[Rfam]
RNA sequence: ACGGUUUGCCGGGGACCUCCUCCUCCCAAUCCCCGGUGAAAAGAGGCCUGCACCUCCUCCCAAAUCGCAGGCUUCGAACUUACGGCGCUCGUCGGCACCUCCUCCCGCCGAUGAGCGCCGACA
Numbered sequence: 001a002c003g004g005u006u007u008g009c010c011g012g013g014g015a016c017c018u019c020c021u022c023c024u025c026c027c028a029a030u031c032c033c034c035g036g037u038g039a040a041a042a043g044a045g046g047c048c049u050g051c052a053c054c055u056c057c058u059c060c061c062a063a064a065u066c067g068c069a070g071g072c073u074u075c076g077a078a079c080u081u082a083c084g085g086c087g088c089u090c091g092u093c094g095g096c097a098c099c100u101c102c103u104c105c106c107g108c109c110g111a112u113g114a115g116c117g118c119c120g121a122c123a
Stems, first nucleotide, its partner, number of pairs: 005040003009036007043075009085118011
RNA: Alphaproteobacterial ar14
Organism: Fulvimarina manganoxydans